RNA sequence: GCCAAAAGGCAUACAGUGAAAAGAGAAAAAAGAGCAGCCUUCGGACUAGGUGCACUGUUCCUGGGGUUUCUUGGAGCAGCAGGAAGCACUAUGGGCGCAGCAUCAGUAGUGCUGACGGUACAGGCCCGACAAUUAUUGUCAGGGAUAGUGCAACAGCAGAAUAAUCUGCUAAGAGCAAUAGAGGCCCAACAGCAUUUAUUGCAACUAUCAGUUUGGGGCAUUAAACAGCUUCAAGCCAGAGUACUUGCUGUGGAAAGAUACCUUAAGGAUCAGCAGAUCCUAGGUCUGUGGGGCUGCUCAGGAAAAACAAUUUGUUAUACCACUGUGCCUUGGA
Numbered sequence: 001g002c003c004a005a006a007a008g009g010c011a012u013a014c015a016g017u018g019a020a021a022a023g024a025g026a027a028a029a030a031a032g033a034g035c036a037g038c039c040u041u042c043g044g045a046c047u048a049g050g051u052g053c054a055c056u057g058u059u060c061c062u063g064g065g066g067u068u069u070c071u072u073g074g075a076g077c078a079g080c081a082g083g084a085a086g087c088a089c090u091a092u093g094g095g096c097g098c099a100g101c102a103u104c105a106g107u108a109g110u111g112c113u114g115a116c117g118g119u120a121c122a123g124g125c126c127c128g129a130c131a132a133u134u135a136u137u138g139u140c141a142g143g144g145a146u147a148g149u150g151c152a153a154c155a156g157c158a159g160a161a162u163a164a165u166c167u168g169c170u171a172a173g174a175g176c177a178a179u180a181g182a183g184g185c186c187c188a189a190c191a192g193c194a195u196u197u198a199u200u201g202c203a204a205c206u207a208u209c210a211g212u213u214u215g216g217g218g219c220a221u222u223a224a225a226c227a228g229c230u231u232c233a234a235g236c237c238a239g240a241g242u243a244c245u246u247g248c249u250g251u252g253g254a255a256a257g258a259u260a261c262c263u264u265a266a267g268g269a270u271c272a273g274c275a276g277a278u279c280c281u282a283g284g285u286c287u288g289u290g291g292g293g294c295u296g297c298u299c300a301g302g303a304a305a306a307a308c309a310a311u312u313u314g315u316u317a318u319a320c321c322a323c324u325g326u327g328c329c330u331u332g333g334a
Base pairs, nucleotide, nucleotide: 001329003327004326016320017319018318020316021315023313024312032299033298034297035296036295037294038293039292046283047282048281049280050279053276059269060268061267062266063264064263065262066261067260068258069257071255076251077250078249079248080247081246086151087150088149089148090147091146092122093121096117097116098114099113100112101111102110103109125143126142128140129139130138131137132136155170156169157168158167159166160165172245173244175242176241182206183205187201188200189199191197192196211236212235213234214233215232216231217230218229219228